[Rfam]
The record is a 221-nucleotide sequence from Acetohalobium arabaticum, which matches "HNH endonuclease-associated RNA and ORF (HEARO) RNA" in Rfam. The literature on the family includes a 2009 paper in Nature by Weinberg et al., "Exceptional structured noncoding RNAs revealed by bacterial metagenome analysis". The source organism's lineage runs through Bacteria, Bacillati, Bacillota, Halobacteroidaceae and Acetohalobium arabaticum.

RNA sequence: GUCACCUUCUCCCCAUUAAAAUGGGAAGCUUGGGAAAAUCAUUUUAGUGUAAGGUGUCCAGGGUAAGUUAGUUAUCUAGCUACGUUAUGGUAGUUACGAUACCUUAAAGUGCCUCCCUAGCUUUAAGCUCUAUCGCCUAGCAUUAAAUAACUCAAUGGGAGUACAAUAGAGUAGUGUGUUAAGCGUAAAAGCUACCAUAACUUACCCGAAGGGAGCGUAGA
Numbered sequence: 001g002u003c004a005c006c007u008u009c010u011c012c013c014c015a016u017u018a019a020a021a022u023g024g025g026a027a028g029c030u031u032g033g034g035a036a037a038a039u040c041a042u043u044u045u046a047g048u049g050u051a052a053g054g055u056g057u058c059c060a061g062g063g064u065a066a067g068u069u070a071g072u073u074a075u076c077u078a079g080c081u082a083c084g085u086u087a088u089g090g091u092a093g094u095u096a097c098g099a100u101a102c103c104u105u106a107a108a109g110u111g112c113c114u115c116c117c118u119a120g121c122u123u124u125a126a127g128c129u130c131u132a133u134c135g136c137c138u139a140g141c142a143u144u145a146a147a148u149a150a151c152u153c154a155a156u157g158g159g160a161g162u163a164c165a166a167u168a169g170a171g172u173a174g175u176g177u178g179u180u181a182a183g184c185g186u187a188a189a190a191g192c193u194a195c196c197a198u199a200a201c202u203u204a205c206c207c208g209a210a211g212g213g214a215g216c217g218u219a220g221a
Stems, first nucleotide, its partner, number of pairs: 001058001003056006010028001012025002015022002029047002032044003061207005066081005084201011099133002103127008113215006135184002138181006147175002150172004155167002